This 110-nucleotide sequence from Neptunomonas marina belongs to the Rfam family "SAM-I/IV (S-adenosyl methionine) riboswitch aptamer". The organism belongs to Neptunomonas, within Bacteria. The match comes from Rfam's covariance-model search (62 bits). The base pairs follow the family's consensus structure, which is taken from published work. Rfam links the family to the GO terms regulation of gene expression and S-adenosylmethionine metabolic process.
[Rfam]
RNA sequence: UAGCCACAUCAAGAGAAGAGUUGACACUCUCACCAACCUGCACAACCUGAGCAAGGUGGUAUUUCCGCACCGCGGACGAUGUGGUCUUUCAGACAAUAUCAGGUCGAAUG
Numbered sequence: 001u002a003g004c005c006a007c008a009u010c011a012a013g014a015g016a017a018g019a020g021u022u023g024a025c026a027c028u029c030u031c032a033c034c035a036a037c038c039u040g041c042a043c044a045a046c047c048u049g050a051g052c053a054a055g056g057u058g059g060u061a062u063u064u065c066c067g068c069a070c071c072g073c074g075g076a077c078g079a080u081g082u083g084g085u086c087u088u089u090c091a092g093a094c095a096a097u098a099u100c101a102g103g104u105c106g107a108a109u110g
Base pairs, nucleotide, nucleotide: 006082007081008080009079010078015031017030018029019028020027021026032060033059034058037056038055039054040052041051047103048102084094085093086092087091
Dot-bracket structure: .....(((((....(.(((((....))))))(((..(((((.....[[..)).))).))).................))))).((((...)))).......]].......